Shown here is a 121-nucleotide sequence from a Lachnospiraceae bacterium, a member of the family "THF (Tetrahydrofolate) riboswitch aptamer". The family has 101 seed sequences and 747 matches in Rfam 15.1. Rfam describes the family as follows. Tetrahydrofolate (THF) riboswitch was first reported for Ames et al. as an RNA motif in 5' untranslated (5'-UTR)regions of folate transport and biosynthesis genes in Firmicutes genomes.

RNA sequence: CGCAGAGUAGGUUAUGAAGCGUAGUGAAGCGGCCAUCCGCUUCCGCAGUGCCCCGUGUACAGGGAGUUGACAUAGGGACGAAAGGCAUUUGCCUGCGAUUUCAUCACCGCAUCCCGCUGCU
Numbered sequence: 001c002g003c004a005g006a007g008u009a010g011g012u013u014a015u016g017a018a019g020c021g022u023a024g025u026g027a028a029g030c031g032g033c034c035a036u037c038c039g040c041u042u043c044c045g046c047a048g049u050g051c052c053c054c055g056u057g058u059a060c061a062g063g064g065a066g067u068u069g070a071c072a073u074a075g076g077g078a079c080g081a082a083a084g085g086c087a088u089u090u091g092c093c094u095g096c097g098a099u100u101u102c103a104u105c106a107c108c109g110c111a112u113c114c115c116g117c118u119g120c121u
Base pairs, nucleotide, nucleotide: 002120003119004118005117010108011107012106014104015103016102017101018100019099020097021096022095048079049078051077052076053075055073056072057071058070062114063113064112066110083094084093085092086091